[Rfam]
The family of this 81-nucleotide sequence from Medicago truncatula is "Small nucleolar RNA J33". Rfam 15.1 lists 831 matches to the family in 223 species. The match comes from Rfam's covariance-model search (79 bits).
RNA sequence: CUGUUAGAGGAAUGAUGUACUACUAUAAGGCCCUCAAGCUUUUGGCUUUUCUAGAUUCUGCAUCAGAAGUAGAGAUCACAG
Numbered sequence: 001c002u003g004u005u006a007g008a009g010g011a012a013u014g015a016u017g018u019a020c021u022a023c024u025a026u027a028a029g030g031c032c033c034u035c036a037a038g039c040u041u042u043u044g045g046c047u048u049u050u051c052u053a054g055a056u057u058c059u060g061c062a063u064c065a066g067a068a069g070u071a072g073a074g075a076u077c078a079c080a081g
Base pairs, nucleotide, nucleotide: 001081002080003079004078006076